[Rfam]
Nucleotides: 054
Stems, first nucleotide, its partner, number of pairs: 006022006029049006
Number, partner (000 for none) and nucleotide at each position: 001000c002000a003000a004000g005000g006022a007021c008020u009019u010018g011017g012000g013000g014000c015000u016000c017011c018010c019009a020008a021007g022006u023000g024000g025000c026000u027000a028000u029049g030048c031047c032046g033045g034044g035000c036000g037000c038000c039000u040000a041000u042000c043000c044034c045033u046032c047031g048030g049029c050000c051000a052000a053000u054000c
The record is a 54-nucleotide sequence from Aureimonas sp. AU20, which matches "sul1 RNA" in Rfam. The family's consensus secondary structure is taken from published work. The source organism's lineage runs through Bacteria, Pseudomonadati, Alphaproteobacteria, Aurantimonadaceae and Aureimonas. By type it is a riboswitch. It scores 56 bits against the family's covariance model.